Notes: The family of this 208-nucleotide sequence from Burkholderia glumae is "Proteobacterial sRNA psRNA2". Rfam 15.1 lists 122 matches to the family in 36 species. The literature on the family includes a 2010 paper in FEMS Microbiol Lett by Gvakharia et al., "Computational prediction and transcriptional analysis of sRNAs in Nitrosomonas europaea". Lineage of the source: Bacteria > Betaproteobacteria > Burkholderiaceae > Burkholderia > Burkholderia glumae. The pairing is the family consensus, mapped onto this sequence.

RNA sequence: GGGUUACUCCUUGGCGCUUGCGCGCUGUUUUGAUGAAGAUUCGCACCUCUAUCAAAACGGGUAACCCCGCCUCUUGGCAAGGCCUUACUGUCAGAUCAAGUCUGAACUUCUACAGCUGAUGCCCUGGUACGCACCUGGCAAAGCCAAGCCGCCGGUCACUUCUGUCCCGACGGCUUUUUUUCUUCGUGGAUUUUGGUGGAUGUCGCUU
Numbered sequence: 001g002g003g004u005u006a007c008u009c010c011u012u013g014g015c016g017c018u019u020g021c022g023c024g025c026u027g028u029u030u031u032g033a034u035g036a037a038g039a040u041u042c043g044c045a046c047c048u049c050u051a052u053c054a055a056a057a058c059g060g061g062u063a064a065c066c067c068c069g070c071c072u073c074u075u076g077g078c079a080a081g082g083c084c085u086u087a088c089u090g091u092c093a094g095a096u097c098a099a100g101u102c103u104g105a106a107c108u109u110c111u112a113c114a115g116c117u118g119a120u121g122c123c124c125u126g127g128u129a130c131g132c133a134c135c136u137g138g139c140a141a142a143g144c145c146a147a148g149c150c151g152c153c154g155g156u157c158a159c160u161u162c163u164g165u166c167c168c169g170a171c172g173g174c175u176u177u178u179u180u181u182c183u184u185c186g187u188g189g190a191u192u193u194u195g196g197u198g199g200a201u202g203u204c205g206c207u208u
Stems, first nucleotide, its partner, number of pairs: 001067007009060002014025004027058009037048002075151003081145002084143002090107002092104005110138003169204003